[Rfam]
RNA sequence: GGUCAUGAGUGCCAGCGCGAAGCCCCGGCUUGCUGGCCGGCAACCCUUGUGUUCGCGAUGGGGUGCUCCGGGUGAGGACCGGGCCGGCGUCGACACCGACGCGGGCAAGCGCGGGCC
Numbered sequence: 001g002g003u004c005a006u007g008a009g010u011g012c013c014a015g016c017g018c019g020a021a022g023c024c025c026c027g028g029c030u031u032g033c034u035g036g037c038c039g040g041c042a043a044c045c046c047u048u049g050u051g052u053u054c055g056c057g058a059u060g061g062g063g064u065g066c067u068c069c070g071g072g073u074g075a076g077g078a079c080c081g082g083g084c085c086g087g088c089g090u091c092g093a094c095a096c097c098g099a100c101g102c103g104g105g106c107a108a109g110c111g112c113g114g115g116c117c
Stems, first nucleotide, its partner, number of pairs: 001080004009038001011037006021030002039067003044063003048058001083106003087102006
A member of the RNA family "SAM (S-adenosyl methionine) riboswitch aptamer" from Actinoplanes auranticolor, 117 nucleotides long.
A reference for the family is Weinberg et al. (2008), "The aptamer core of SAM-IV riboswitches mimics the ligand-binding site of SAM-I riboswitches", RNA.
The family has 40 seed sequences and 2,360 matches in Rfam 15.1.
The base pairs follow the family's consensus structure, which is taken from published work.